[Rfam]
RNA sequence: UAGACAGGGUGUUUGCGAUAGCAUCCUGUUCUAGGUUGGUUUCUUAGCGAUUAUGGAGGGGUUGGACCCUCCUGGUGUGAGAAGGAAACACAUCAAAACAAAAAACAGGGUUCUGUAACCGGUGCGACAAUAUGCCCUUCCAAGGCACUGACCGGCACGGAUAAAACUUUAUUUGCCUAGUCGUAUAACGGCUAGGCACCCC
Numbered sequence: 001u002a003g004a005c006a007g008g009g010u011g012u013u014u015g016c017g018a019u020a021g022c023a024u025c026c027u028g029u030u031c032u033a034g035g036u037u038g039g040u041u042u043c044u045u046a047g048c049g050a051u052u053a054u055g056g057a058g059g060g061g062u063u064g065g066a067c068c069c070u071c072c073u074g075g076u077g078u079g080a081g082a083a084g085g086a087a088a089c090a091c092a093u094c095a096a097a098a099c100a101a102a103a104a105a106c107a108g109g110g111u112u113c114u115g116u117a118a119c120c121g122g123u124g125c126g127a128c129a130a131u132a133u134g135c136c137c138u139u140c141c142a143a144g145g146c147a148c149u150g151a152c153c154g155g156c157a158c159g160g161a162u163a164a165a166a167c168u169u170u171a172u173u174u175g176c177c178u179a180g181u182c183g184u185a186u187a188a189c190g191g192c193u194a195g196g197c198a199c200c201c202c
Stems, first nucleotide, its partner, number of pairs: 005028008055072006073095001075094001076092004174198011
Overview
The record is a 202-nucleotide sequence from Dianthovirus meliloti, which matches "Dianthovirus RNA2 3'UTR stem loops" in Rfam. By type it is a cis-regulatory element. The base pairs follow the family's consensus structure. A reference for the family is An et al. (2010), "A Y-shaped RNA structure in the 3' untranslated region together with the trans-activator and core promoter of Red clover necrotic mosaic virus RNA2 is required for its negative-strand RNA synthesis", Virology. It is one of the family's seed sequences.